Annotation
Rfam assigns this 67-nucleotide sequence from Pullulanibacillus pueri to the family "Bacillaceae-1 RNA". Rfam 15.1 lists 5,721 matches to the family in 247 species. Rfam classes the family as a small RNA. Pairs were carried over by alignment from the consensus structure, which is taken from published work.
[Rfam]
RNA sequence: CACUAAGGACGAUCGGUUAAAAUCGUCACGUCCUGUGACAACACCGAUCCUACCCACGUCCUGUGGG
Numbered sequence: 001c002a003c004u005a006a007g008g009a010c011g012a013u014c015g016g017u018u019a020a021a022a023u024c025g026u027c028a029c030g031u032c033c034u035g036u037g038a039c040a041a042c043a044c045c046g047a048u049c050c051u052a053c054c055c056a057c058g059u060c061c062u063g064u065g066g067g
Base pairs, nucleotide, nucleotide: 011049012048013047014046015045016044017043025039026038027037028036029035053067054066055065056064057063